[Rfam]
RNA: Small nucleolar RNA SNORA65
Organism: Cyprinus carpio
RNA sequence: CCCGCCACUGUGCUUGUCUGUAAAAUUGACAGUGUACUGCCAAGGGAAGGCUUAAAGUGACCCAGCUCUAGGAAACAGGGCCGACCAACUUAAUGGCUGACUCUGUGCCGAAAGGACUGGAACAAGU
Numbered sequence: 001c002c003c004g005c006c007a008c009u010g011u012g013c014u015u016g017u018c019u020g021u022a023a024a025a026u027u028g029a030c031a032g033u034g035u036a037c038u039g040c041c042a043a044g045g046g047a048a049g050g051c052u053u054a055a056a057g058u059g060a061c062c063c064a065g066c067u068c069u070a071g072g073a074a075a076c077a078g079g080g081c082c083g084a085c086c087a088a089c090u091u092a093a094u095g096g097c098u099g100a101c102u103c104u105g106u107g108c109c110g111a112a113a114g115g116a117c118u119g120g121a122a123c124a125a126g127u
Base pairs, nucleotide, nucleotide: 005046006045009042010041018032019031020030021028022027062120063119064118065117066115067114069112071109072108076105077104078103079102080101085096086095